[Rfam]
The family of this 107-nucleotide RNA sequence from Malus baccata is "Antisense RNA which regulates isiA expression".
The family's consensus secondary structure was predicted with PFOLD.
The match comes from Rfam's covariance-model search (76 bits).
The literature on the family includes a 2006 paper in Proc Natl Acad Sci U S A by Duhring et al., "An internal antisense RNA regulates expression of the photosynthesis gene isiA".
Rfam 15.1 lists 3,397 matches to the family in 659 species.
Taxonomically the source falls in Malus (Eukaryota, Streptophyta, Pentapetalae, Rosales).
RNA sequence: GCCCAUGUAUCAUAUACACCCCAAAAUAAAGAGCCUUGAAUACUAGAAGAAAAGCACCUAUACCUAACAAGAUUAAGUGAAUACCCAAAUCUUGUGUUCAGGUUCUA
Numbered sequence: 001g002c003c004c005a006u007g008u009a010u011c012a013u014a015u016a017c018a019c020c021c022c023a024a025a026a027u028a029a030a031g032a033g034c035c036u037u038g039a040a041u042a043c044u045a046g047a048a049g050a051a052a053a054g055c056a057c058c059u060a061u062a063c064c065u066a067a068c069a070a071g072a073u074u075a076a077g078u079g080a081a082u083a084c085c086c087a088a089a090u091c092u093u094g095u096g097u098u099c100a101g102g103u104u105c106u107a
Base pairs, nucleotide, nucleotide: 076104077103078100079099080098081097084096086094087093088092